RNA sequence: CGACCCGCGGCGGGAGAGUCCCUCCCCGCAUGGGGUGGGCGCCGUAGGAGCAAUCCCUCCCCGGGAAACUCUCAGGCCCCCGCACCGCCGCGACGAG
Numbered sequence: 001c002g003a004c005c006c007g008c009g010g011c012g013g014g015a016g017a018g019u020c021c022c023u024c025c026c027c028g029c030a031u032g033g034g035g036u037g038g039g040c041g042c043c044g045u046a047g048g049a050g051c052a053a054u055c056c057c058u059c060c061c062c063g064g065g066a067a068a069c070u071c072u073c074a075g076g077c078c079c080c081c082g083c084a085c086c087g088c089c090g091c092g093a094c095g096a097g
Stems, first nucleotide, its partner, number of pairs: 006092008020039003041077003044073001048071003054064002
Shown here is a 97-nucleotide RNA sequence from Galactobacter valiniphilus, a member of the family "Glycine riboswitch aptamer". Pairs were carried over by alignment from the consensus structure.